The family of this 344-nucleotide RNA from Altericroceibacterium endophyticum is "Alphaproteobacteria transfer-messenger RNA".
Its family is annotated with RNA catabolic process in the Gene Ontology.
The literature on the family includes a 1996 paper in RNA by Williams and Bartel, "Phylogenetic analysis of tmRNA secondary structure".
A search with the family's covariance model found it, with a score of 239 bits.
RNA sequence: CAUCUUCACAAUCACGGGAUGCACCCCUAUAUGGGGAUAGCCGGUUUAGGCCGGAUAUGGCGAUAAAAUGUGGUGUGCAAUAGGCACAGCGGACCCGGGGGCAGUACCCGGCGGCUCCACCAGAAUUCCCGGUUUUCCGGGUGUCCUGACGGGGCCGAACCAGGAUCGACGUGUGUUGAAAGACAUCGCUUUCGCCCGGGCUGAGUAACCCGUUCAAGGCUCAAAACACACAAGUGCCAACGAUAACGAAGCACUCGCAAUCGCUGCGUAAUUUGACGUCCUAACGGACUGAAUUUACAAAGCUAAAGCGCGGUUGGACCCACCGGGCAACAGAAGGGAUACCA
Numbered sequence: 001c002a003u004c005u006u007c008a009c010a011a012u013c014a015c016g017g018g019a020u021g022c023a024c025c026c027c028u029a030u031a032u033g034g035g036g037a038u039a040g041c042c043g044g045u046u047u048a049g050g051c052c053g054g055a056u057a058u059g060g061c062g063a064u065a066a067a068a069u070g071u072g073g074u075g076u077g078c079a080a081u082a083g084g085c086a087c088a089g090c091g092g093a094c095c096c097g098g099g100g101g102c103a104g105u106a107c108c109c110g111g112c113g114g115c116u117c118c119a120c121c122a123g124a125a126u127u128c129c130c131g132g133u134u135u136u137c138c139g140g141g142u143g144u145c146c147u148g149a150c151g152g153g154g155c156c157g158a159a160c161c162a163g164g165a166u167c168g169a170c171g172u173g174u175g176u177u178g179a180a181a182g183a184c185a186u187c188g189c190u191u192u193c194g195c196c197c198g199g200g201c202u203g204a205g206u207a208a209c210c211c212g213u214u215c216a217a218g219g220c221u222c223a224a225a226a227c228a229c230a231c232a233a234g235u236g237c238c239a240a241c242g243a244u245a246a247c248g249a250a251g252c253a254c255u256c257g258c259a260a261u262c263g264c265u266g267c268g269u270a271a272u273u274u275g276a277c278g279u280c281c282u283a284a285c286g287g288a289c290u291g292a293a294u295u296u297a298c299a300a301a302g303c304u305a306a307a308g309c310g311c312g313g314u315u316g317g318a319c320c321c322a323c324c325g326g327g328c329a330a331c332a333g334a335a336g337g338g339a340u341a342c343c344a
Stems, first nucleotide, its partner, number of pairs: 041054004059196005070189007085175003089172003095111005112157007197212004202223003311325004316342001318340001320338002
By type it is a non-coding RNA gene. Taxonomically the source falls in Altericroceibacterium (Bacteria, Pseudomonadati, Alphaproteobacteria, Erythrobacteraceae).